About this RNA: A member of the RNA family "Small nucleolar RNA SNORA14" from Erinaceus europaeus, 131 nucleotides long. Rfam describes the family as follows. ACA14 is a member of the H/ACA class of snoRNA that guide the sites of modification of uridines to pseudouridines. The base pairs follow the family's consensus structure, which was predicted with RNAfold. Its family is annotated with nucleolus and RNA processing in the Gene Ontology.

RNA sequence: GUGCAUUCUUAGACACUUGGCAGUUUUGCUCUAAAUGCUUCGAAGAUAUGAAUGAAUGCUAUAGAAAUUGCAGGGAGUCCAAAAGUCUGCAUUUCUCUAAGGUUCAGUCUUAUUUCAUACCUGCAACAUCU
Numbered sequence: 001g002u003g004c005a006u007u008c009u010u011a012g013a014c015a016c017u018u019g020g021c022a023g024u025u026u027u028g029c030u031c032u033a034a035a036u037g038c039u040u041c042g043a044a045g046a047u048a049u050g051a052a053u054g055a056a057u058g059c060u061a062u063a064g065a066a067a068u069u070g071c072a073g074g075g076a077g078u079c080c081a082a083a084a085g086u087c088u089g090c091a092u093u094u095c096u097c098u099a100a101g102g103u104u105c106a107g108u109c110u111u112a113u114u115u116c117a118u119a120c121c122u123g124c125a126a127c128a129u130c131u
Base pairs, nucleotide, nucleotide: 003059004058005057006056009051010050011049017044018043020041022039023038024037063131064130065129068126069125070124071123072122073121074120083111084110085109087107088106089105091103092102